[Rfam]
RNA sequence: GGCCAACCGUGGGGGUGCCGUUACCGGCUGAGAGGCGCAAGCCAACCCAUCGAACCUGAUCCGGGUCAUGCCGGCGGAGGGAACGGGUUUUUGCAGCCG
Numbered sequence: 001g002g003c004c005a006a007c008c009g010u011g012g013g014g015g016u017g018c019c020g021u022u023a024c025c026g027g028c029u030g031a032g033a034g035g036c037g038c039a040a041g042c043c044a045a046c047c048c049a050u051c052g053a054a055c056c057u058g059a060u061c062c063g064g065g066u067c068a069u070g071c072c073g074g075c076g077g078a079g080g081g082a083a084c085g086g087g088u089u090u091u092u093g094c095a096g097c098c099g
Base pairs, nucleotide, nucleotide: 007086008085009084010083012048013047014046017028018027019026020025035042036041055080056079057078061074062073063072064071